[Rfam]
RNA sequence: CCAUAGGCUAAGUAGUAGUGCCGCAGGUAACUAUAAAUUCAGAUUACCUGUGCACCACUUCUUAACCUUGAAG
Number, nucleotide and partner (000 for none) at each position: 001c073002c000003a000004u070005a069006g068007g067008c000009u064010a063011a062012g061013u000014a059015g058016u057017a000018g055019u000020g000021c000022c000023g051024c050025a049026g048027g047028u046029a045030a000031c000032u000033a000034u000035a000036a000037a000038u000039u000040c000041a000042g000043a000044u000045u029046a028047c027048c026049u025050g024051u023052g000053c000054a000055c018056c000057a016058c015059u014060u000061c012062u011063u010064a009065a000066c000067c007068u006069u005070g004071a000072a000073g001
RNA: mir-252 microRNA precursor family